[Rfam]
RNA: MicF RNA
Organism: Mangrovibacter sp. MFB070
RNA sequence: CGCUAUCAUCAUUAACUUUAUUUAUUACCGUCAUUCAGUUCUGAAUGUCUGUUUACCCCAAUUUCUUGCCGAAUGUCUUACAUUCGGCUUUUUUU
Number, nucleotide and partner (000 for none) at each position: 001c000002g000003c000004u000005a000006u000007c000008a000009u000010c000011a000012u000013u000014a000015a000016c000017u000018u000019u000020a000021u000022u000023u000024a000025u000026u000027a000028c000029c000030g000031u000032c000033a046034u045035u044036c043037a042038g000039u000040u000041c000042u037043g036044a035045a034046u033047g000048u000049c000050u000051g000052u000053u000054u000055a000056c000057c000058c000059c000060a000061a000062u000063u000064u000065c000066u000067u000068g088069c087070c086071g085072a084073a083074u082075g081076u080077c000078u000079u000080a076081c075082a074083u073084u072085c071086g070087g069088c068089u000090u000091u000092u000093u000094u000095u000